[Rfam]
RNA sequence: UAACAGUUGUUCCUCUUUCAACCGAGACCUAUGGGGAGGUUAAACAUAGUCUCUCAUCUUACCUUCACUUGAGGGUGGUGAAGGAAAUCGGUAAAUUG
Numbered sequence: 001u002a003a004c005a006g007u008u009g010u011u012c013c014u015c016u017u018u019c020a021a022c023c024g025a026g027a028c029c030u031a032u033g034g035g036g037a038g039g040u041u042a043a044a045c046a047u048a049g050u051c052u053c054u055c056a057u058c059u060u061a062c063c064u065u066c067a068c069u070u071g072a073g074g075g076u077g078g079u080g081a082a083g084g085a086a087a088u089c090g091g092u093a094a095a096u097u098g
Base pairs, nucleotide, nucleotide: 013038014037015036016035017034019033020032024053025052026051027050028049062084063083064082065081066080067079068078
RNA: PhotoRC-II RNA